[Rfam]
The family of this 154-nucleotide RNA sequence is "IS605-orfB-II RNA".
RNA sequence: CAUGAUUAGAUUAGUCUAUCUAGGAUUGUUUAGAGGGUAGUCGCAGUCGCCCCAACUCUGACUUGCUAAGCAAUUUUUUUGUUUUGUAAGUAGGAUGAGAAAACAACAAACAUUUUGUUGGAAACUUUAAUUUUUUAAUAAAUUAGAGAACUGU
Numbered sequence: 001c002a003u004g005a006u007u008a009g010a011u012u013a014g015u016c017u018a019u020c021u022a023g024g025a026u027u028g029u030u031u032a033g034a035g036g037g038u039a040g041u042c043g044c045a046g047u048c049g050c051c052c053c054a055a056c057u058c059u060g061a062c063u064u065g066c067u068a069a070g071c072a073a074u075u076u077u078u079u080u081g082u083u084u085u086g087u088a089a090g091u092a093g094g095a096u097g098a099g100a101a102a103a104c105a106a107c108a109a110a111c112a113u114u115u116u117g118u119u120g121g122a123a124a125c126u127u128u129a130a131u132u133u134u135u136u137a138a139u140a141a142a143u144u145a146g147a148g149a150a151c152u153g154u
Stems, first nucleotide, its partner, number of pairs: 006023006035052004043154004056099003061091006068084003073079001104120007125148009

The family's RNA type in Rfam is small RNA.